[Rfam]
RNA sequence: CACACGUGAGGCAAGGGAUUGUCCGGGAGAAAUCCGGACCGUUCCACCCGGUGGUAUCUUCCUAGAAGAUGCUGUUCGCCUUGCGGAGGUUCAACCGGAUAAGGAGUAACCCA
Numbered sequence: 001c002a003c004a005c006g007u008g009a010g011g012c013a014a015g016g017g018a019u020u021g022u023c024c025g026g027g028a029g030a031a032a033u034c035c036g037g038a039c040c041g042u043u044c045c046a047c048c049c050g051g052u053g054g055u056a057u058c059u060u061c062c063u064a065g066a067a068g069a070u071g072c073u074g075u076u077c078g079c080c081u082u083g084c085g086g087a088g089g090u091u092c093a094a095c096c097g098g099a100u101a102a103g104g105a106g107u108a109a110c111c112c113a
Stems, first nucleotide, its partner, number of pairs: 001088001003086001005085006012078001016045002024036002027034001054072006
RNA: rpsB sRNA